[Rfam]
RNA sequence: GGGGUUGUGGCUCAGUGGUAGAGCACUUGCCUCACAUGCAUGAGGCACUGAGUUUGAUCCUCAGCACCACCU
Numbered sequence: 001g002g003g004g005u006u007g008u009g010g011c012u013c014a015g016u017g018g019u020a021g022a023g024c025a026c027u028u029g030c031c032u033c034a035c036a037u038g039c040a041u042g043a044g045g046c047a048c049u050g051a052g053u054u055u056g057a058u059c060c061u062c063a064g065c066a067c068c069a070c071c072u
Stems, first nucleotide, its partner, number of pairs: 001071002004068001006066002010024004026042001028040003048064005